Bacterial RNase P class A: a 344-nucleotide sequence from Clostridium collagenovorans.
[Rfam]
RNA sequence: CGAGUAAGCCAGACAAUCGCUGCUGUAGUUUACUACAGAAGAGGAAAGUCCGAGCUCCAUAGGGCAGGGUGCUGGGUAACUCCCAGUGGAGGCGACUCUAAGGAAAGUGCAACAGAGAUAUACCGCCAAGUUUACUUGGUAAGGGUGGAAAGGCGAGGUAAGAGCUCACCAGCGCAUUGGCGACUUUGCGGCUAUGUAAACCCCAUCUGGAGCAAGAUCGAAUAGGAAGACAUUAUGGGGCUGCCCGUCCCGUCUUCGGGUGUAUCGCUUGAGCAUAUUGGAAACAAUAUGCCUAGAUAGAUGAUUGUCUAAUACAGAACUCGGCUUAUAGACUUAGUCGUAUA
Numbered sequence: 001c002g003a004g005u006a007a008g009c010c011a012g013a014c015a016a017u018c019g020c021u022g023c024u025g026u027a028g029u030u031u032a033c034u035a036c037a038g039a040a041g042a043g044g045a046a047a048g049u050c051c052g053a054g055c056u057c058c059a060u061a062g063g064g065c066a067g068g069g070u071g072c073u074g075g076g077u078a079a080c081u082c083c084c085a086g087u088g089g090a091g092g093c094g095a096c097u098c099u100a101a102g103g104a105a106a107g108u109g110c111a112a113c114a115g116a117g118a119u120a121u122a123c124c125g126c127c128a129a130g131u132u133u134a135c136u137u138g139g140u141a142a143g144g145g146u147g148g149a150a151a152g153g154c155g156a157g158g159u160a161a162g163a164g165c166u167c168a169c170c171a172g173c174g175c176a177u178u179g180g181c182g183a184c185u186u187u188g189c190g191g192c193u194a195u196g197u198a199a200a201c202c203c204c205a206u207c208u209g210g211a212g213c214a215a216g217a218u219c220g221a222a223u224a225g226g227a228a229g230a231c232a233u234u235a236u237g238g239g240g241c242u243g244c245c246c247g248u249c250c251c252g253u254c255u256u257c258g259g260g261u262g263u264a265u266c267g268c269u270u271g272a273g274c275a276u277a278u279u280g281g282a283a284a285c286a287a288u289a290u291g292c293c294u295a296g297a298u299a300g301a302u303g304a305u306u307g308u309c310u311a312a313u314a315c316a317g318a319a320c321u322c323g324g325c326u327u328a329u330a331g332a333c334u335u336a337g338u339c340g341u342a343u344a
Stems, first nucleotide, its partner, number of pairs: 001340003005336004010331001011329001012309007020041002023038006046327003050324005055212004062246004067208005072086005087101001088099004102203002107201002109197003123144002125140006152170002155167003172192001173190004179184001216266003226257006237251005273292008
Notes
NCBI's taxonomy places the organism under Bacteria, Bacillati, Bacillota, Clostridiaceae, Clostridium collagenovorans.